This 45-nucleotide RNA sequence from Sphaeramia orbicularis belongs to the Rfam family "Histone 3' UTR stem-loop". It is annotated as a cis-regulatory element. The mRNAs of metazoan histone genes lack a poly-A tail. 3' end processing occurs at a site between a highly conserved stem-loop (modelled by this family) and a purine rich region around 20 nts downstream (the histone downstream element, or HDE). Lineage of the source: Eukaryota > Metazoa > Eurypterygia > Kurtiformes > Sphaeramia.
[Rfam]
RNA sequence: ACAACGGCUCUUUUAAGAGCCACACACUCACUCGCUGAAAAAGAA
Dot-bracket structure: .....((((((....))))))........................
Numbered sequence: 001a002c003a004a005c006g007g008c009u010c011u012u013u014u015a016a017g018a019g020c021c022a023c024a025c026a027c028u029c030a031c032u033c034g035c036u037g038a039a040a041a042a043g044a045a
Stems, first nucleotide, its partner, number of pairs: 006021006